Shown here is a 131-nucleotide RNA sequence from Stegastes partitus, a member of the family "Small nucleolar RNA SNORA44". Taxonomically the source falls in Stegastes (Eukaryota, Neopterygii, Ovalentaria, Pomacentridae). From the family's description: ACA44 is a member of the H/ACA class of snoRNA that guide the sites of modification of uridines to pseudouridines. Pairs were carried over by alignment from the consensus structure, which was predicted with PFOLD. The family's RNA type in Rfam is H/ACA-box small nucleolar RNA.

RNA sequence: AUGCGUGCUAUCCUAAGGACCUGAGCUUGUUUGUAGCUCAUUGUUCUCCAAGUGCAUGCGAGAAAAUAGGGUGGUCUUUGACUGUUGUGGCUCUCUUUUGCCAUCAGCAGCCACUCAACUGUCCUACAGAU
Number, nucleotide and partner (000 for none) at each position: 001a000002u000003g000004c000005g000006u000007g000008c000009u000010a000011u000012c000013c000014u000015a041016a000017g000018g000019a038020c000021c036022u035023g034024a000025g032026c000027u000028u000029g000030u000031u000032u025033g000034u023035a022036g021037c000038u019039c000040a000041u015042u000043g000044u000045u000046c000047u000048c000049c000050a000051a000052g000053u000054g000055c000056a000057u000058g000059c000060g000061a000062g000063a000064a000065a000066a000067u000068a000069g124070g123071g122072u121073g120074g119075u000076c000077u000078u000079u000080g000081a000082c000083u000084g111085u110086u000087g104088u103089g102090g101091c000092u000093c000094u000095c000096u000097u000098u000099u000100g000101c090102c089103a088104u087105c000106a000107g000108c000109a000110g085111c084112c000113a000114c000115u000116c000117a000118a000119c074120u073121g072122u071123c070124c069125u000126a000127c000128a000129g000130a000131u000